[Rfam]
RNA sequence: GACUUACCGUAACCAGCGAGGUUAAGGGCCUUUGGUCCGGAGCCGAAGCGAAAGCGAGUCUUAAACGGGCGUCAAGUUGGGUGCGGUAGACGCGAAACCACGUGACCUACGCAUGGCCAGGAUGAAGUGGGGGUACAACCCCAUGGAGGACCGAACUCAUUUGGGUUGAAAACCGAUGGGAUGAGCUGUGUGGGGGAGUGAAAGUCUAAUCAAACGUGGAGAUAGCUCGUU
Numbered sequence: 001g002a003c004u005u006a007c008c009g010u011a012a013c014c015a016g017c018g019a020g021g022u023u024a025a026g027g028g029c030c031u032u033u034g035g036u037c038c039g040g041a042g043c044c045g046a047a048g049c050g051a052a053a054g055c056g057a058g059u060c061u062u063a064a065a066c067g068g069g070c071g072u073c074a075a076g077u078u079g080g081g082u083g084c085g086g087u088a089g090a091c092g093c094g095a096a097a098c099c100a101c102g103u104g105a106c107c108u109a110c111g112c113a114u115g116g117c118c119a120g121g122a123u124g125a126a127g128u129g130g131g132g133g134u135a136c137a138a139c140c141c142c143a144u145g146g147a148g149g150a151c152c153g154a155a156c157u158c159a160u161u162u163g164g165g166u167u168g169a170a171a172a173c174c175g176a177u178g179g180g181a182u183g184a185g186c187u188g189u190g191u192g193g194g195g196g197a198g199u200g201a202a203a204g205u206c207u208a209a210u211c212a213a214a215c216g217u218g219g220a221g222a223u224a225g226c227u228c229g230u231u
Stems, first nucleotide, its partner, number of pairs: 005088007013080005020044004026038003048055002058070004091229002094226001098219006107195002110192008118183001120152002123149001127144006156180003161176004197207002
The record is a 231-nucleotide part of an RNA from Gemmata obscuriglobus, which matches "Bacterial large subunit ribosomal RNA" in Rfam. The literature on the family includes a 2001 paper in Science by Yusupov et al., "Crystal structure of the ribosome at 5.5 A resolution". The source organism's lineage runs through Bacteria, Pseudomonadati, Planctomycetia, Gemmataceae and Gemmata.